[Rfam]
RNA sequence: GAUGUGUUGUUGCAAUAGUAAUCCUGCUCAGUACGAGAGGAACCGCAGGUUCAGACAUUUGGUGCGUGUGCUUGGCUGAGGAGCCAAUGGUGCGAAGCUACCAUCUGUGGGAUUAUGACUGAACGCCUCUAAGUCAGAAUCCCGCCUAGACGUAACGAUACCGCUGUGCCGAGGAUCUUUGGUUGGACCGGGAUAGCCGGGGCCCCUCUGCGGGGGAGCCCCGGUGCGGAGGGCCGUUCGUGACUGGGCUGGGGUGCGGACGAAAGAGCGCCGCCCCUCUCCAGACGCGCACCGCACGUUCGUGAGGAACCUGGUGCUAAAUCACUCGUAGACGACCUGAUUCUGGGUCAGGGUUUCGUACGUGGCAGAGCAGCUCCAUCGCUGCGAUCCAUUGAAAGUCAUCCCUCGAUCCAAGACUUUGU
Numbered sequence: 001g002a003u004g005u006g007u008u009g010u011u012g013c014a015a016u017a018g019u020a021a022u023c024c025u026g027c028u029c030a031g032u033a034c035g036a037g038a039g040g041a042a043c044c045g046c047a048g049g050u051u052c053a054g055a056c057a058u059u060u061g062g063u064g065c066g067u068g069u070g071c072u073u074g075g076c077u078g079a080g081g082a083g084c085c086a087a088u089g090g091u092g093c094g095a096a097g098c099u100a101c102c103a104u105c106u107g108u109g110g111g112a113u114u115a116u117g118a119c120u121g122a123a124c125g126c127c128u129c130u131a132a133g134u135c136a137g138a139a140u141c142c143c144g145c146c147u148a149g150a151c152g153u154a155a156c157g158a159u160a161c162c163g164c165u166g167u168g169c170c171g172a173g174g175a176u177c178u179u180u181g182g183u184u185g186g187a188c189c190g191g192g193a194u195a196g197c198c199g200g201g202g203c204c205c206c207u208c209u210g211c212g213g214g215g216g217a218g219c220c221c222c223g224g225u226g227c228g229g230a231g232g233g234c235c236g237u238u239c240g241u242g243a244c245u246g247g248g249c250u251g252g253g254g255u256g257c258g259g260a261c262g263a264a265a266g267a268g269c270g271c272c273g274c275c276c277c278u279c280u281c282c283a284g285a286c287g288c289g290c291a292c293c294g295c296a297c298g299u300u301c302g303u304g305a306g307g308a309a310c311c312u313g314g315u316g317c318u319a320a321a322u323c324a325c326u327c328g329u330a331g332a333c334g335a336c337c338u339g340a341u342u343c344u345g346g347g348u349c350a351g352g353g354u355u356u357c358g359u360a361c362g363u364g365g366c367a368g369a370g371c372a373g374c375u376c377c378a379u380c381g382c383u384g385c386g387a388u389c390c391a392u393u394g395a396a397a398g399u400c401a402u403c404c405c406u407c408g409a410u411c412c413a414a415g416a417c418u419u420u421g422u
Base pairs, nucleotide, nucleotide: 006159007158008157009156010155011154012153013152016148017147018146021051023049024048025047026046027045052107053106054105055104060100061099062098067094068093069092070091071090072087073086074085075084076083077082109143110142111141116136117135118134119133120132168315169314170313172312173311174310319420320419321418325339328336345412346411347410348409349408351405352404353403355398356397362392363391364390365389367388370385371384372383373382374381

Eukaryotic large subunit ribosomal RNA: a 422-nucleotide part of an RNA from Chanos chanos.